Rfam assigns this 71-nucleotide RNA from Escherichia coli to the family "Nucleoid-associated noncoding RNA 4 (CssrE)".
About the family: In E. coli small RNA transcribed from repeated extragenic palindromic element (REP325) called nucleoid-associated ncRNA 4 (nRNA4) collaborates HU protein in condensing the DNA. The secondary structure but not the sequence of the RNA is important in nucleoid condensation. Also identified in Shigella as CssrE.
It is annotated as a small RNA.
Rfam links the family to the GO terms protein binding, bacterial nucleoid DNA packaging and bacterial nucleoid.
RNA sequence: GGCCGGAUAAGGCAUUCACGCCGCAUCCGGCGCUGUUUGCCUGAUGCGACGCUUGCGCGUCUUAUCAGGCC
Numbered sequence: 001g002g003c004c005g006g007a008u009a010a011g012g013c014a015u016u017c018a019c020g021c022c023g024c025a026u027c028c029g030g031c032g033c034u035g036u037u038u039g040c041c042u043g044a045u046g047c048g049a050c051g052c053u054u055g056c057g058c059g060u061c062u063u064a065u066c067a068g069g070c071c
Stems, first nucleotide, its partner, number of pairs: 002031007011022003039070008048061005